[Rfam]
RNA: Ribosomal protein L10 leader
RNA sequence: AUAAAUGAAUACGUUAUACCGUAGACAGCAGGUGCGGAUGCAACUCCGCUUAAUUUCCUGCCGAGGUGUGUGAAUAAGCAGGACAGCGCUAAAAACGCCCUGUUCUCUCAUACGUACCUCCAUGUCUGCAUGGAGGUACUUUUUUGUGAAACCU
Numbered sequence: 001a002u003a004a005a006u007g008a009a010u011a012c013g014u015u016a017u018a019c020c021g022u023a024g025a026c027a028g029c030a031g032g033u034g035c036g037g038a039u040g041c042a043a044c045u046c047c048g049c050u051u052a053a054u055u056u057c058c059u060g061c062c063g064a065g066g067u068g069u070g071u072g073a074a075u076a077a078g079c080a081g082g083a084c085a086g087c088g089c090u091a092a093a094a095a096c097g098c099c100c101u102g103u104u105c106u107c108u109c110a111u112a113c114g115u116a117c118c119u120c121c122a123u124g125u126c127u128g129c130a131u132g133g134a135g136g137u138a139c140u141u142u143u144u145u146g147u148g149a150a151a152c153c154u
Stems, first nucleotide, its partner, number of pairs: 028061005034049005114139010